The family of this 222-nucleotide part of an RNA from Cryphonectria parasitica is "Ascomycota telomerase RNA". The match comes from Rfam's covariance-model search (411 bits). NCBI's taxonomy places the organism under Eukaryota, Sordariomycetidae, Diaporthales, Cryphonectria-Endothia species complex, Cryphonectria parasitica. Rfam links the family to the GO terms telomerase activity, telomere maintenance via telomerase and telomerase catalytic core complex. A reference for the family is Qi et al. (2013), "The common ancestral core of vertebrate and fungal telomerase RNAs", Nucleic Acids Res.

RNA sequence: UCCCCCACGGUGCUCCGAUUCUCGUAUGCCGAAAGGCAUUCUCUUCGAGGACCCCUCUGGCUGGACCGGAUAUGCCCACAAUACGUCGCAUCUCGUCCCUGUAUCAGGAAUCUCGAUGAUCGCCGCGGUCUGGUCUCAUUGUGGUCAUGGUUGUCAUUCGCUGGCAAGCCGGUUCUUCGUGAGGGUGUACGAGUCUCGGAACUUAACCCUAGCCCUAAAUGC
Numbered sequence: 001u002c003c004c005c006c007a008c009g010g011u012g013c014u015c016c017g018a019u020u021c022u023c024g025u026a027u028g029c030c031g032a033a034a035g036g037c038a039u040u041c042u043c044u045u046c047g048a049g050g051a052c053c054c055c056u057c058u059g060g061c062u063g064g065a066c067c068g069g070a071u072a073u074g075c076c077c078a079c080a081a082u083a084c085g086u087c088g089c090a091u092c093u094c095g096u097c098c099c100u101g102u103a104u105c106a107g108g109a110a111u112c113u114c115g116a117u118g119a120u121c122g123c124c125g126c127g128g129u130c131u132g133g134u135c136u137c138a139u140u141g142u143g144g145u146c147a148u149g150g151u152u153g154u155c156a157u158u159c160g161c162u163g164g165c166a167a168g169c170c171g172g173u174u175c176u177u178c179g180u181g182a183g184g185g186u187g188u189a190c191g192a193g194u195c196u197c198g199g200a201a202c203u204u205a206a207c208c209c210u211a212g213c214c215c216u217a218a219a220u221g222c
Base pairs, nucleotide, nucleotide: 009203010202011201015199016198017197018196